[Rfam]
RNA: Bacterial RNase P class B
RNA sequence: AGCAUUGGCCAACAGCUGCUUUUUAAGUAGAGGAAAGUCCACGCUAGCACAAUCUGAGAUGAUUGUAGUGUUCAUGUUGGAUCUAAUAAAUCCAAGCUUAGACGACUAGUGCCACAGAGACGAGAAUUGUGAAACGCGGUAAACUCCAUGAGCUAGAAACCCAAAUUUUGGUAGGGGAACUUUUUCAAGAGAAUUCAAUUAAGAAAAAGAAUUAUCUUUUUUGAUAAUUAGAUAAAUUGUUGGCACUCUUAAGAGUACAAAACGUGGCUUAUAGAU
Number, nucleotide and partner (000 for none) at each position: 001a000002g000003c000004a276005u275006u274007g272008g244009c243010c242011a241012a240013c239014a238015g000016c030017u029018g028019c027020u026021u025022u000023u000024u000025a021026a020027g019028u018029a017030g016031a000032g000033g000034a000035a270036a269037g268038u000039c267040c266041a265042c264043g263044c156045u155046a154047g153048c152049a066050c065051a064052a063053u062054c061055u000056g000057a000058g000059a000060u000061g054062a053063u052064u051065g050066u049067a000068g000069u000070g000071u000072u151073c150074a149075u148076g147077u095078u094079g093080g092081a091082u090083c000084u000085a000086a000087u000088a000089a000090a082091u081092c080093c079094a078095a077096g103097c101098u000099u000100a000101g097102a000103c096104g146105a145106c000107u000108a000109g144110u143111g140112c139113c138114a000115c000116a000117g000118a000119g000120a000121c000122g000123a000124g000125a000126a000127u000128u000129g000130u000131g000132a000133a000134a000135c000136g000137c000138g113139g112140u111141a000142a000143a110144c109145u105146c104147c076148a075149u074150g073151a072152g048153c047154u046155a045156g044157a000158a000159a000160c176161c175162c174163a000164a000165a000166u000167u000168u000169u000170g000171g000172u000173a000174g162175g161176g160177g000178a000179a000180c209181u208182u207183u206184u205185u204186c203187a000188a000189g000190a000191g000192a000193a000194u000195u000196c000197a000198a000199u000200u000201a000202a000203g186204a185205a184206a183207a182208a181209g180210a229211a228212u227213u226214a225215u224216c000217u000218u000219u000220u000221u000222u000223g000224a215225u214226a213227a212228u211229u210230a000231g000232a000233u000234a000235a000236a000237u000238u014239g013240u012241u011242g010243g009244c008245a000246c255247u254248c253249u000250u000251a000252a000253g248254a247255g246256u000257a000258c000259a000260a000261a000262a000263c043264g042265u041266g040267g039268c037269u036270u035271a000272u007273a000274g006275a005276u004